[Rfam]
RNA: SAM riboswitch aptamer (S box leader)
Organism: Flavobacterium sp. Leaf359
RNA sequence: UUGUUAUCACGAAAGGCGGAGGGAUUAGACCCGAUGAAGCCUUAGCAACCCUUUAAGCUUUAAAGAAGGUGCUACAUUCUACCAUAUUAUUGGAUAGAUAACAC
Numbered sequence: 001u002u003g004u005u006a007u008c009a010c011g012a013a014a015g016g017c018g019g020a021g022g023g024a025u026u027a028g029a030c031c032c033g034a035u036g037a038a039g040c041c042u043u044a045g046c047a048a049c050c051c052u053u054u055a056a057g058c059u060u061u062a063a064a065g066a067a068g069g070u071g072c073u074a075c076a077u078u079c080u081a082c083c084a085u086a087u088u089a090u091u092g093g094a095u096a097g098a099u100a101a102c103a104c
Base pairs, nucleotide, nucleotide: 002103003102004101005100006099007098008097013043014042015041016040017039021032022031023030026081027080028079029078044073045072046071047070049069050068051065052064053063054062077096082093083092084091